[Rfam]
RNA sequence: GGGAGCAGGCGUCCGUCUGGUGACGGCCACGGUCUUCAAAACCGUCGGCGGGUGCGAUCCACCCGCGGUGGGUUCGAUUCCCAUCUGCUCCC
Numbered sequence: 001g002g003g004a005g006c007a008g009g010c011g012u013c014c015g016u017c018u019g020g021u022g023a024c025g026g027c028c029a030c031g032g033u034c035u036u037c038a039a040a041a042c043c044g045u046c047g048g049c050g051g052g053u054g055c056g057a058u059c060c061a062c063c064c065g066c067g068g069u070g071g072g073u074u075c076g077a078u079u080c081c082c083a084u085c086u087g088c089u090c091c092c
Stems, first nucleotide, its partner, number of pairs: 001092009013026005029045005048066005069083004
Dot-bracket structure: (((((((((...(((((....)))))..(((((.......)))))..(((((.........)))))..((((.......)))))))))))))

A member of the RNA family "Selenocysteine transfer RNA" from Limnochorda pilosa, 92 nucleotides long. The source organism's lineage runs through Bacteria, Bacillota, Limnochordia, Limnochordaceae and Limnochorda. It scores 81 bits against the family's covariance model. Pairs were carried over by alignment from the consensus structure, which is taken from published work.